This 199-nucleotide RNA sequence from Nicotiana attenuata belongs to the Rfam family "MIR159 microRNA precursor family". Pairs were carried over by alignment from the consensus structure, which was predicted with WAR. On this family, see Jones-Rhoades and Bartel, Mol Cell 2004: "Computational identification of plant microRNAs and their targets, including a stress-induced miRNA". A search with the family's covariance model found it, with a score of 155 bits. The source organism's lineage runs through Eukaryota, Streptophytina, Embryophyta, Spermatophyta and Nicotiana.

[Rfam]
RNA sequence: AAUGGUUUAAGAGAGCUUCCUUCAGUCCACUCAUAGGUGGAUGAAGGGAUUUGGAUUAGCUGCCGACUCAUUCAUUCAAACACAGUAGAAAUCAUAUAUGUAUUUCUAUACGCUACUGUGAAUGUGUGAAUGAUGCGGGAGGUAAAUUCAUCCCUUUUUAUCUGUGCUUGGACUGAAGGGAGCUCCCUUUUGCCUUUUU
Numbered sequence: 001a002a003u004g005g006u007u008u009a010a011g012a013g014a015g016c017u018u019c020c021u022u023c024a025g026u027c028c029a030c031u032c033a034u035a036g037g038u039g040g041a042u043g044a045a046g047g048g049a050u051u052u053g054g055a056u057u058a059g060c061u062g063c064c065g066a067c068u069c070a071u072u073c074a075u076u077c078a079a080a081c082a083c084a085g086u087a088g089a090a091a092u093c094a095u096a097u098a099u100g101u102a103u104u105u106c107u108a109u110a111c112g113c114u115a116c117u118g119u120g121a122a123u124g125u126g127u128g129a130a131u132g133a134u135g136c137g138g139g140a141g142g143u144a145a146a147u148u149c150a151u152c153c154c155u156u157u158u159u160a161u162c163u164g165u166g167c168u169u170g171g172a173c174u175g176a177a178g179g180g181a182g183c184u185c186c187c188u189u190u191u192g193c194c195u196u197u198u199u
Stems, first nucleotide, its partner, number of pairs: 013185008023175007036162001060141002063138003069132004077124001